[Rfam]
Nucleotides: 063
Stems, first nucleotide, its partner, number of pairs: 002013003028055007037046002
Number, partner (000 for none) and nucleotide at each position: 001000u002013g003012g004011u005000a006000g007000a008000u009000g010000c011004a012003c013002c014000c015000u016000g017000a018000u019000a020000a021000c022000u023000a024000a025000g026000c027000u028055c029054c030053c031052c032051u033050a034049g035000a036000u037046g038045g039000c040000u041000a042000a043000c044000a045038c046037c047000u048000a049034c050033u051032g052031g053030g054029g055028g056000u057000u058000u059000u060000u061000u062000c063000u
Rfam assigns this 63-nucleotide RNA from Trichormus variabilis to the family "Nitrogen stress-induced RNA 1". It scores 69 bits against the family's covariance model.